A member of the RNA family "UnaL2 LINE 3' element" from Hucho hucho, 54 nucleotides long. The eel long interspersed element (LINE) UnaL2 and its partner short interspersed element (SINE) share a conserved 3' tail containing a stem-loop that is critical for their retrotransposition.
RNA sequence: UGCAUGCAUGACUGUUAAUCGCUUUGGAUAAAAGCGUCUGCAAAAUAGCAUUAA
Number, nucleotide and partner (000 for none) at each position: 001u000002g000003c000004a000005u000006g000007c000008a000009u000010g000011a000012c000013u043014g041015u040016u000017a000018a000019u000020c036021g035022c034023u033024u032025u031026g000027g000028a000029u000030a000031a025032a024033a023034g022035c021036g020037u000038c000039u000040g015041c014042a000043a013044a000045a000046u000047a000048g000049c000050a000051u000052u000053a000054a000
Taxonomically the source falls in Hucho (Eukaryota, Opisthokonta, Euteleostomi, Salmonidae). On this family, see Baba et al., RNA 2004: "Solution structure of an RNA stem-loop derived from the 3' conserved region of eel LINE UnaL2".